[Rfam]
RNA sequence: UAUUGAGGUGAUGAUCUUUUUUUUUUUCUGAAUCUAUGCUUGUAGACUUCAAAAAUUCAGACUACAAUUAUCUGAUCAAUG
Numbered sequence: 001u002a003u004u005g006a007g008g009u010g011a012u013g014a015u016c017u018u019u020u021u022u023u024u025u026u027u028c029u030g031a032a033u034c035u036a037u038g039c040u041u042g043u044a045g046a047c048u049u050c051a052a053a054a055a056u057u058c059a060g061a062c063u064a065c066a067a068u069u070a071u072c073u074g075a076u077c078a079a080u081g
Base pairs, nucleotide, nucleotide: 001081002080003079004078005077006076
Small nucleolar RNA Z155: an 81-nucleotide RNA sequence from Cucurbita maxima. The organism belongs to Cucurbita, within Eukaryota.